[Rfam]
RNA sequence: ACUGCUGAGCCAUCUCUCCAGCCCCAGGCAUUCUGUUUUAAAAAAAAAAAUUAGUGGGGCUGGAGAGAUGGCUCAGCAGU
Numbered sequence: 001a002c003u004g005c006u007g008a009g010c011c012a013u014c015u016c017u018c019c020a021g022c023c024c025c026a027g028g029c030a031u032u033c034u035g036u037u038u039u040a041a042a043a044a045a046a047a048a049a050a051u052u053a054g055u056g057g058g059g060c061u062g063g064a065g066a067g068a069u070g071g072c073u074c075a076g077c078a079g080u
Stems, first nucleotide, its partner, number of pairs: 002079023